[Rfam]
RNA sequence: AGCUGGUCUGAUGGUAGUGGUUUAUCAGAACUUACUAACAUUAGUGUCACUAAAGUUGAUGCACAACCCCUCACUGCUAAAUUUGACUGUCUUAAA
Numbered sequence: 001a002g003c004u005g006g007u008c009u010g011a012u013g014g015u016a017g018u019g020g021u022u023u024a025u026c027a028g029a030a031c032u033u034a035c036u037a038a039c040a041u042u043a044g045u046g047u048c049a050c051u052a053a054a055g056u057u058g059a060u061g062c063a064c065a066a067c068c069c070c071u072c073a074c075u076g077c078u079a080a081a082u083u084u085g086a087c088u089g090u091c092u093u094a095a096a
Stems, first nucleotide, its partner, number of pairs: 001092002004089005010084002015079001016075005026061002030057001